[Rfam]
RNA sequence: CUCAGGUUUUCCCAGUGUUCAGACUACGUGUUCGUUGGAUAGAACCUGAACAGUAGUCUACACACUGGUUAAACUGGGAC
Numbered sequence: 001c002u003c004a005g006g007u008u009u010u011c012c013c014a015g016u017g018u019u020c021a022g023a024c025u026a027c028g029u030g031u032u033c034g035u036u037g038g039a040u041a042g043a044a045c046c047u048g049a050a051c052a053g054u055a056g057u058c059u060a061c062a063c064a065c066u067g068g069u070u071a072a073a074c075u076g077g078g079a080c
Stems, first nucleotide, its partner, number of pairs: 012068007021059006029052003033048002